A member of the RNA family "Bacterial small subunit ribosomal RNA", 509 nucleotides of a longer RNA. Clan: SSU clan.
RNA sequence: AUAUAGAUGAGUUUGGUGAUGGCUCUGAAUGAAUGCUGUCCAAAUGCUUGACACAUGCUAAUCGCACGAUUAAUUUAAUGAAUAAUUUUAUUAAUAAGUGGUGUACAGGUGAGUAUAUGAUAUUUUUACUACCUUAAAGUGAGGGAUAAAAUCCCACAUAAUAAUAAAGGCAUAUAAGCCGCUUUAGGAUGAAGAUUAAUAUCGUCGAGAUAGGUAGUAGUAAAGGUUAUGUCUUCACUAGCCUAAAACUCUCGUAACCGUAACUGAGAGGUUGAUCGGUCACAUUGGGUCUGAAAAAAGCCCAAUGCAAAGUUAGUACAGCAGUGGGGAAUUUUGGUCAAUGGCCUAAGGGCUGAACUGGCAAUUUGGGUAAACGAAACAGAAUUGUAACUUACUAAAAUAAAGUUUUAAGUACGUAUUAAUAAUGAUAAUAUGUAUAAAAGUCUUGACCAAUUACGUGCCAGCAGUCGCGGUAAUACGUAGGAGACGAGCAUUAUUCAUAUUAAAUA
Numbered sequence: 001a002u003a004u005a006g007a008u009g010a011g012u013u014u015g016g017u018g019a020u021g022g023c024u025c026u027g028a029a030u031g032a033a034u035g036c037u038g039u040c041c042a043a044a045u046g047c048u049u050g051a052c053a054c055a056u057g058c059u060a061a062u063c064g065c066a067c068g069a070u071u072a073a074u075u076u077a078a079u080g081a082a083u084a085a086u087u088u089u090a091u092u093a094a095u096a097a098g099u100g101g102u103g104u105a106c107a108g109g110u111g112a113g114u115a116u117a118u119g120a121u122a123u124u125u126u127u128a129c130u131a132c133c134u135u136a137a138a139g140u141g142a143g144g145g146a147u148a149a150a151a152u153c154c155c156a157c158a159u160a161a162u163a164a165u166a167a168a169g170g171c172a173u174a175u176a177a178g179c180c181g182c183u184u185u186a187g188g189a190u191g192a193a194g195a196u197u198a199a200u201a202u203c204g205u206c207g208a209g210a211u212a213g214g215u216a217g218u219a220g221u222a223a224a225g226g227u228u229a230u231g232u233c234u235u236c237a238c239u240a241g242c243c244u245a246a247a248a249c250u251c252u253c254g255u256a257a258c259c260g261u262a263a264c265u266g267a268g269a270g271g272u273u274g275a276u277c278g279g280u281c282a283c284a285u286u287g288g289g290u291c292u293g294a295a296a297a298a299a300g301c302c303c304a305a306u307g308c309a310a311a312g313u314u315a316g317u318a319c320a321g322c323a324g325u326g327g328g329g330a331a332u333u334u335u336g337g338u339c340a341a342u343g344g345c346c347u348a349a350g351g352g353c354u355g356a357a358c359u360g361g362c363a364a365u366u367u368g369g370g371u372a373a374a375c376g377a378a379a380c381a382g383a384a385u386u387g388u389a390a391c392u393u394a395c396u397a398a399a400a401u402a403a404a405g406u407u408u409u410a411a412g413u414a415c416g417u418a419u420u421a422a423u424a425a426u427g428a429u430a431a432u433a434u435g436u437a438u439a440a441a442a443g444u445c446u447u448g449a450c451c452a453a454u455u456a457c458g459u460g461c462c463a464g465c466a467g468u469c470g471c472g473g474u475a476a477u478a479c480g481u482a483g484g485a486g487a488c489g490a491g492c493a494u495u496a497u498u499c500a501u502a503u504u505a506a507a508u509a
Stems, first nucleotide, its partner, number of pairs: 009025005027499004032495006040369005045363002047328001052326003056323003061102003066099002069095002076093007109283003117205008129191001133188007141157001143155002169180003206254003213243003218240004223235003257280004262273004285305006307317002310314001334360001336359003342355005372385001390436002393433002399426001405420001407418001443488005454483005464471002
Overview
It scores 603 bits against the family's covariance model. Pairs were carried over by alignment from the consensus structure, which is taken from published work.